A member of the RNA family "U2 spliceosomal RNA" from Hibiscus trionum, 196 nucleotides long. Rfam describes the family as follows. U2 is a small nuclear RNA (snRNA) component of the spliceosome (involved in pre-mRNA splicing). Complementary binding between U2 snRNA (in an area lying towards the 5' end but 3' to hairpin I) and the branchpoint sequence (BPS) of the intron results the bulging out of an unpaired adenosine, on the BPS, which initiates a nucleophilic attack at the intronic 5' splice site, thus starting the first of two transesterification reactions that mediate splicing. The organism belongs to Hibiscus, within Eukaryota. The base pairs follow the family's consensus structure, which is taken from published work. It scores 159 bits against the family's covariance model. A reference for the family is Zwieb (1997), "The uRNA database", Nucleic Acids Res.

RNA sequence: AUACCUUUCUCGGCCUUUUGGCUAAGAUCAAGUGUAGUAUCUGUUCUUAUCAGUUUAAUAUAUGAUACAUGAGCCAUUAGUUCACAUGAUAUUAAAUUUAUUUUUUUAGUGGGGAAGCUCACCACAGUAGCUUGCUACUGGGGCUUUCAUGUGUCGCCCAAGCGUUGCACUAUAGCUUGGGCCUGACGCACCACUC
Dot-bracket structure: .......(((.((((....)))).)))....................(((((..........)))))..(((((.....)))))............................((((((((......((((....))))..))))))))..((((((.((((((...........))))))...)))))).......